[Rfam]
RNA sequence: CGCGCUUUCCGCCCAGGCGGAGCUCGACCGCUGUUUCAAGUCCGGAAGGCCUUUUGUCGAUCAAUAUCGCGAUACCUUCGGGGUCGAGCCGAACUGCAAGGUCUUGCGGAUUGCCCCG
Numbered sequence: 001c002g003c004g005c006u007u008u009c010c011g012c013c014c015a016g017g018c019g020g021a022g023c024u025c026g027a028c029c030g031c032u033g034u035u036u037c038a039a040g041u042c043c044g045g046a047a048g049g050c051c052u053u054u055u056g057u058c059g060a061u062c063a064a065u066a067u068c069g070c071g072a073u074a075c076c077u078u079c080g081g082g083g084u085c086g087a088g089c090c091g092a093a094c095u096g097c098a099a100g101g102u103c104u105u106g107c108g109g110a111u112u113g114c115c116c117c118g
Base pairs, nucleotide, nucleotide: 016032017031018030019029020028079118080117081116082115083114090113091112094109095108096107097106098105099104
RNA: ALIL pseudoknot
Organism: Caballeronia novacaledonica